[Rfam]
RNA sequence: CUUUCUACACAGGUUGGGAUCAGUUGCAAUGCUCUAGUCUUAUCUGGUAUUGCACUUGUCCCGGCCUGUUGAUGAUGG
Numbered sequence: 001c002u003u004u005c006u007a008c009a010c011a012g013g014u015u016g017g018g019a020u021c022a023g024u025u026g027c028a029a030u031g032c033u034c035u036a037g038u039c040u041u042a043u044c045u046g047g048u049a050u051u052g053c054a055c056u057u058g059u060c061c062c063g064g065c066c067u068g069u070u071g072a073u074g075a076u077g078g
Stems, first nucleotide, its partner, number of pairs: 004074001006072001009069006016062005022056003026053008

Rfam assigns this 78-nucleotide RNA sequence from Microcaecilia unicolor to the family "mir-92 microRNA precursor family".
Rfam links the family to the GO terms RISC complex and miRNA-mediated post-transcriptional gene silencing.
The match comes from Rfam's covariance-model search (76 bits).
Lineage of the source: Eukaryota > Opisthokonta > Eumetazoa > Bilateria > Microcaecilia.
Pairs were carried over by alignment from the consensus structure, which was predicted with PFOLD.